[Rfam]
RNA: Archaeal large subunit ribosomal RNA, nucleotides 971 to 1559
Organism: Aeropyrum pernix
RNA sequence: GAAGUGGCUCGCAGGCCAGCCCCGCCGGAGGCCGGGCCGUGGGGUAGAGCUACUGAUUGGGCGUGCAGGGGGCGUAAAGCCCCCGGCGCCCAGUCAAACUCCGAACCUGCGGCCGCCGUAGAUGGCGGGAGUGGGGUUCCCCGGGGUAAGCCCGGGGGCCGAGAGGGGAACAACCCAGACCGGGGUUAAGGCCCCUAAGUGCCGGCUAAGUGCCAAGCCAAAGGGCGUCCCCCGCCUAAGACAGCGGGGAGGUGGGCCUAACAGCAGCCAUCCUCUAAAGGCGGGUUACCUCACCCUUCCAGGUGCUGGGUUUAGCUGAAUCUUAGUAUUACAUUCUGUAGUUCAUGCCAGGAUAGGGUAGAAGGUACUAGUCUAAUAGGAUUUAGGCAUCCUCAGAAGUCAGGGCGUGCAUUUAGACUCUUAACGAAGUUUGGUCAUGCUAAUUAUUAUUUACCUUUGGGUGGGGUGCCCGCCGGAGAGGGAGUGCGUAACAGCUCACCCGCCGAGGCGGGGGGCCCCGAAGAUUGGUCGGGGCUUAAGCCGGCCGCCGAGACCCCGGGCCGCGGCUCCGAUGGAGCCGCGUGCGGUA
Numbered sequence: 001g002a003a004g005u006g007g008c009u010c011g012c013a014g015g016c017c018a019g020c021c022c023c024g025c026c027g028g029a030g031g032c033c034g035g036g037c038c039g040u041g042g043g044g045u046a047g048a049g050c051u052a053c054u055g056a057u058u059g060g061g062c063g064u065g066c067a068g069g070g071g072g073c074g075u076a077a078a079g080c081c082c083c084c085g086g087c088g089c090c091c092a093g094u095c096a097a098a099c100u101c102c103g104a105a106c107c108u109g110c111g112g113c114c115g116c117c118g119u120a121g122a123u124g125g126c127g128g129g130a131g132u133g134g135g136g137u138u139c140c141c142c143g144g145g146g147u148a149a150g151c152c153c154g155g156g157g158g159c160c161g162a163g164a165g166g167g168g169a170a171c172a173a174c175c176c177a178g179a180c181c182g183g184g185g186u187u188a189a190g191g192c193c194c195c196u197a198a199g200u201g202c203c204g205g206c207u208a209a210g211u212g213c214c215a216a217g218c219c220a221a222a223g224g225g226c227g228u229c230c231c232c233c234g235c236c237u238a239a240g241a242c243a244g245c246g247g248g249g250a251g252g253u254g255g256g257c258c259u260a261a262c263a264g265c266a267g268c269c270a271u272c273c274u275c276u277a278a279a280g281g282c283g284g285g286u287u288a289c290c291u292c293a294c295c296c297u298u299c300c301a302g303g304u305g306c307u308g309g310g311u312u313u314a315g316c317u318g319a320a321u322c323u324u325a326g327u328a329u330u331a332c333a334u335u336c337u338g339u340a341g342u343u344c345a346u347g348c349c350a351g352g353a354u355a356g357g358g359u360a361g362a363a364g365g366u367a368c369u370a371g372u373c374u375a376a377u378a379g380g381a382u383u384u385a386g387g388c389a390u391c392c393u394c395a396g397a398a399g400u401c402a403g404g405g406c407g408u409g410c411a412u413u414u415a416g417a418c419u420c421u422u423a424a425c426g427a428a429g430u431u432u433g434g435u436c437a438u439g440c441u442a443a444u445u446a447u448u449a450u451u452u453a454c455c456u457u458u459g460g461g462u463g464g465g466g467u468g469c470c471c472g473c474c475g476g477a478g479a480g481g482g483a484g485u486g487c488g489u490a491a492c493a494g495c496u497c498a499c500c501c502g503c504c505g506a507g508g509c510g511g512g513g514g515g516c517c518c519c520g521a522a523g524a525u526u527g528g529u530c531g532g533g534g535c536u537u538a539a540g541c542c543g544g545c546c547g548c549c550g551a552g553a554c555c556c557c558g559g560g561c562c563g564c565g566g567c568u569c570c571g572a573u574g575g576a577g578c579c580g581c582g583u584g585c586g587g588u589a
Stems, first nucleotide, its partner, number of pairs: 005018005020131001021129006030117003035114008047102001048100002055095010068084006135160002138158007165176003180559007190549003199546001201545006223519003227516010244503005250274003255269003275481001482497001486495002560585002562582007